[Rfam]
RNA sequence: UUUUCUAAAUCGCUGAGACCGUAUGGUGCGGGGGACCCAAAUGUUUCUUGGGGUGAAUCCUUAUUAAAAGGUAGGGCUACUCAUGGCCCGAAUCCGUCAGCUAACCUCGUAAGCGUUAUUUGAGAAGGAAG
Numbered sequence: 001u002u003u004u005c006u007a008a009a010u011c012g013c014u015g016a017g018a019c020c021g022u023a024u025g026g027u028g029c030g031g032g033g034g035a036c037c038c039a040a041a042u043g044u045u046u047c048u049u050g051g052g053g054u055g056a057a058u059c060c061u062u063a064u065u066a067a068a069a070g071g072u073a074g075g076g077c078u079a080c081u082c083a084u085g086g087c088c089c090g091a092a093u094c095c096g097u098c099a100g101c102u103a104a105c106c107u108c109g110u111a112a113g114c115g116u117u118a119u120u121u122g123a124g125a126a127g128g129a130a131g
Stems, first nucleotide, its partner, number of pairs: 011115004018027003028110006038050002051095003059071004074089004